The record is a 77-nucleotide RNA sequence from Intrasporangium chromatireducens, which matches "Fluoride riboswitch aptamer (crcB RNA motif)" in Rfam.
The source organism's lineage runs through Bacteria, Actinomycetota, Actinomycetes, Intrasporangiaceae and Intrasporangium chromatireducens.
Pairs were carried over by alignment from the consensus structure, which is taken from published work.
It scores 39 bits against the family's covariance model.

RNA sequence: UGUCGCCACGGCGAUGGAUCCCGCCGGGACGCCACGCGCGCCCGAACCGCCACCCGGCUGAUGGUUCCUGUUCAUCA
Numbered sequence: 001u002g003u004c005g006c007c008a009c010g011g012c013g014a015u016g017g018a019u020c021c022c023g024c025c026g027g028g029a030c031g032c033c034a035c036g037c038g039c040g041c042c043c044g045a046a047c048c049g050c051c052a053c054c055c056g057g058c059u060g061a062u063g064g065u066u067c068c069u070g071u072u073c074a075u076c077a
Base pairs, nucleotide, nucleotide: 010025011024012023013022016068017067018066020064021063049058050057051056